[Rfam]
RNA sequence: UAUUGUGGUGGUUUCUGUGUGUGGCAGAUCUGUGAGUGCAUCAGAACUGUACCAGAACUACCACAGAGAUCAGAAAGGAGAGGGCAGCGCUGAGAACUUCAAGCUUUCGGUUUUCAGCAAUUUGUUCAGCUCCUACAGAA
Dot-bracket structure: ....(((((((...........(((.(.((((.........)))).).)).).....)))))))............((((..(((...)))........((((.................)))).....)))).......

The family of this 140-nucleotide RNA from Tyrannus savana is "Small nucleolar RNA SNORA12". By type it is an H/ACA-box small nucleolar RNA. A reference for the family is Gu et al. (2005), "A novel experimental approach for systematic identification of box H/ACA snoRNAs from eukaryotes", Nucleic Acids Res. The family has 23 seed sequences and 571 matches in Rfam 15.1. Gene Ontology terms of the family: RNA processing and nucleolus. U108 belongs to the H/ACA family of snoRNAs. The sequence is predicted to guide the pseudouridylation of the U372 residue in the 28S rRNA subunit. However it has not been reported as a pseudouridylation site. The source organism's lineage runs through Eukaryota, Amniota, Sauria, Dinosauria and Tyrannus.